[Rfam]
RNA sequence: AUGGCAGCAGUUCGAAAAAUCCUGCUUUAAAAAACUAAGGAGAU
Numbered sequence: 001a002u003g004g005c006a007g008c009a010g011u012u013c014g015a016a017a018a019a020u021c022c023u024g025c026u027u028u029a030a031a032a033a034a035c036u037a038a039g040g041a042g043a044u
Base pairs, nucleotide, nucleotide: 006026007025008024009023010022016036
Description
Shown here is a 44-nucleotide RNA from Schinkia azotoformans, a member of the family "PreQ1 (pre queuosine) riboswitch aptamer". A search with the family's covariance model found it, with a score of 44 bits. Its family is annotated with queuosine biosynthetic process in the Gene Ontology. Pairs were carried over by alignment from the consensus structure. This family is a bacterial riboswitch that binds to the metabolite preQ1, an intermediate in the biosynthesis of the modified nucleoside queuosine from GTP. One example of this riboswitch is located in the leader of the Bacillus subtilis ykvJKLM (queCDEF) operon which encodes four genes necessary for queuosine production. PreQ1 binding to the riboswitch aptamer is thought to induce premature transcription termination within the leader to down-regulate expression of these genes. The organism belongs to Schinkia azotoformans, within Bacteria.